[Rfam]
Overview:
Shown here is a 104-nucleotide RNA sequence from Isachenkonia alkalipeptolytica, a member of the family "SAM riboswitch aptamer (S box leader)".
Nucleotides: 104
Base pairs, nucleotide, nucleotide: 003102004101005100006099007098008097013041015040016039017038021031022030023029025077026076027075028074042069043068044067045066047065048064049061051059052058073096078093079092080091081090082089
Number, partner (000 for none) and nucleotide at each position: 001000c002000a003102c004101u005100u006099a007098u008097c009000c010000a011000g012000a013041g014000c015040g016039g017038c018000g019000g020000a021031g022030g023029g024000a025077c026076u027075g028074g029023c030022c031021c032000g033000a034000u035000g036000a037000a038017g039016c040015c041013c042069g043068g044067c045066a046000a047065c048064c049061a050000a051059g052058a053000a054000g055000a056000a057000a058052u059051u060000c061049u062000a063000a064048g065047g066045u067044g068043c069042u070000a071000a072000u073096u074028c075027c076026a077025g078093c079092a080091g081090u082089g083000c084000a085000u086000c087000g088000u089082c090081a091080c092079u093078g094000a095000a096073a097008g098007a099006u100005g101004a102003g103000a104000c
A reference for the family is Stoddard et al. (2010), "Free state conformational sampling of the SAM-I riboswitch aptamer domain", Structure. The match comes from Rfam's covariance-model search (85 bits).